Background
The family of this 76-nucleotide RNA sequence from Anopheles darlingi is "mir-970 microRNA precursor family". The family has 11 seed sequences and 75 matches in Rfam 15.1.
RNA sequence: UGGAUGUAGCCAGCGUUUGUUUUAUUUGGUAUGAAUCAAUAUAAAAUAUAUCAUAAGACACACGCGGCUAUUUCCG
Numbered sequence: 001u002g003g004a005u006g007u008a009g010c011c012a013g014c015g016u017u018u019g020u021u022u023u024a025u026u027u028g029g030u031a032u033g034a035a036u037c038a039a040u041a042u043a044a045a046a047u048a049u050a051u052c053a054u055a056a057g058a059c060a061c062a063c064g065c066g067g068c069u070a071u072u073u074c075c076g
Stems, first nucleotide, its partner, number of pairs: 001076004006071001008069004013065003018060002021058003027053005